[Rfam]
RNA sequence: GAGUGAAAUGAUGGCAUACCAUCUUUCGGGACUGACACAGCAAUGGAGAUAACUAUUUUUUAGUAUUACUGAUCACUC
Number, nucleotide and partner (000 for none) at each position: 001g078002a077003g076004u075005g074006a073007a000008a000009u000010g000011a000012u000013g000014g000015c000016a000017u000018a000019c000020c000021a000022u000023c000024u000025u000026u000027c000028g000029g000030g000031a000032c000033u000034g000035a000036c000037a000038c000039a000040g000041c000042a000043a000044u000045g000046g000047a000048g000049a000050u000051a000052a000053c000054u000055a000056u000057u000058u000059u000060u000061u000062a000063g000064u000065a000066u000067u000068a000069c000070u000071g000072a000073u006074c005075a004076c003077u002078c001